[Rfam]
RNA: Small Cajal body specific RNA 21
RNA sequence: UGGCUUGGUUUCCUGUGGGGUGGGCUCAGCCUACACCACCUCCCCUCAGCCAAGCCUAGAGUAGAGGGGCCAGGUAUACUCCCCACGGGAGAGGCAUUUAAGUAAGGAGCCUCACCUUGCCUGUCCUAGUCUCACAUUA
Numbered sequence: 001u002g003g004c005u006u007g008g009u010u011u012c013c014u015g016u017g018g019g020g021u022g023g024g025c026u027c028a029g030c031c032u033a034c035a036c037c038a039c040c041u042c043c044c045c046u047c048a049g050c051c052a053a054g055c056c057u058a059g060a061g062u063a064g065a066g067g068g069g070c071c072a073g074g075u076a077u078a079c080u081c082c083c084c085a086c087g088g089g090a091g092a093g094g095c096a097u098u099u100a101a102g103u104a105a106g107g108a109g110c111c112u113c114a115c116c117u118u119g120c121c122u123g124u125c126c127u128a129g130u131c132u133c134a135c136a137u138u139a
Stems, first nucleotide, its partner, number of pairs: 002056006015044001017042007066133005072127003079119001087112003